The family of this 138-nucleotide RNA from Gouania willdenowi is "Small nucleolar RNA SNORA84".
The family's RNA type in Rfam is H/ACA-box small nucleolar RNA.
For this family Rfam cites "Experimental RNomics: identification of 140 candidates for small non-messenger RNAs in the plant Arabidopsis thaliana" (Marker et al., Curr Biol, 2002).
Rfam links the family to the GO terms RNA processing and nucleolus.
RNA sequence: GCCUGGUGGUUCCUGAAGUCAGCUCCAAAGUGCUGAACUUUGGGUUUUUACAAACAGGCACAUAUUAAUAAUCUCUGCGAUUAAUGCAUGGAAGCUGUCACUGUAGCAGCCUUCCGUAGCCCGGUUGCAGAUACAUCC
Numbered sequence: 001g002c003c004u005g006g007u008g009g010u011u012c013c014u015g016a017a018g019u020c021a022g023c024u025c026c027a028a029a030g031u032g033c034u035g036a037a038c039u040u041u042g043g044g045u046u047u048u049u050a051c052a053a054a055c056a057g058g059c060a061c062a063u064a065u066u067a068a069u070a071a072u073c074u075c076u077g078c079g080a081u082u083a084a085u086g087c088a089u090g091g092a093a094g095c096u097g098u099c100a101c102u103g104u105a106g107c108a109g110c111c112u113u114c115c116g117u118a119g120c121c122c123g124g125u126u127g128c129a130g131a132u133a134c135a136u137c138c
Stems, first nucleotide, its partner, number of pairs: 001059004007050002012044006019036005075130001077128006086120002088117004093112002095109004
The match comes from Rfam's covariance-model search (79 bits). The base pairs follow the family's consensus structure, which was predicted with WAR. The organism belongs to Gouania, within Eukaryota.